A member of the RNA family "sok antitoxin (CssrC)", 192 nucleotides long. For this family Rfam cites "An integrated approach for finding overlooked genes in Shigella" (Peng et al., PLoS One, 2011).
[Rfam]
Nucleotides: 192
Base pairs, nucleotide, nucleotide: 001098002097003096005095006094007093009092013088014087015086016085017084018083019082020081021080022079027074028073029072030071031070099118102115104112119158120157121156122155123154126152128150129149132146133145134144162184163183166180
Number, partner (000 for none) and nucleotide at each position: 001098g002097g003096g004000u005095g006094c007093u008000c009092u010000g011000g012000a013088u014087c015086u016085u017084u018083u019082u020081g021080u022079c023000c024000c025000g026000a027074g028073c029072a030071u031070g032000a033000u034000g035000u036000c037000c038000u039000g040000u041000u042000u043000u044000a045000u046000a047000c048000g049000u050000u051000u052000a053000g054000u055000a056000u057000u058000u059000g060000c061000u062000g063000u064000a065000a066000c067000c068000g069000g070031u071030a072029u073028g074027c075000g076000g077000a078000a079022g080021a081020c082019a083018a084017a085016a086015a087014g088013a089000g090000a091000a092009a093007a094006g095005c096003c097002c098001c099118g100000a101000a102115u103000u104112g105000a106000a107000a108000u109000u110000a111000a112104u113000c114000a115102a116000a117000a118099c119158g120157a121156g122155g123154c124000c125000g126152a127000u128150c129149u130000g131000c132146a133145u134144g135000c136000u137000u138000g139000a140000g141000a142000a143000a144134c145133a146132u147000c148000a149129g150128g151000u152126u153000a154123g155122c156121c157120u158119c159000u160000u161000a162184c163183c164000c165000g166180c167000c168000g169000a170000a171000a172000g173000g174000c175000a176000a177000g178000g179000a180166g181000u182000c183163g184162g185000a186000g187000u188000c189000u190000a191000u192000g